[Rfam]
RNA sequence: GUUGCUUCACGACUGGAAGAAUGGCCUGAUGAUUAUGGUUCGAUCAUCCUUUAGUGAGAAGCAUAGAUUGAUUUUGGCCAGAAUUAAAUAGCAUGGCGCUUUAUUUCACCGCGUCAAUGUUACCUGUCUCCUAGCACAUUU
Number, nucleotide and partner (000 for none) at each position: 001g000002u000003u063004g062005c061006u060007u059008c058009a000010c000011g000012a000013c000014u000015g000016g000017a052018a051019g050020a000021a000022u046023g045024g044025c000026c042027u000028g000029a000030u000031g000032a000033u000034u000035a000036u000037g000038g000039u000040u000041c000042g026043a000044u024045c023046a022047u000048c000049c000050u019051u018052u017053a000054g000055u000056g000057a000058g008059a007060a006061g005062c004063a003064u000065a000066g000067a000068u000069u000070g000071a000072u000073u000074u000075u000076g000077g135078c134079c000080a132081g131082a000083a129084u000085u000086a000087a000088a000089u000090a121091g120092c119093a000094u116095g115096g114097c113098g112099c000100u000101u000102u000103a000104u000105u000106u000107c000108a000109c000110c000111g000112c098113g097114u096115c095116a094117a000118u000119g092120u091121u090122a000123c000124c000125u000126g000127u000128c000129u083130c000131c081132u080133a000134g078135c077136a000137c000138a000139u000140u000141u000
RNA: small nucleolar RNA snoR137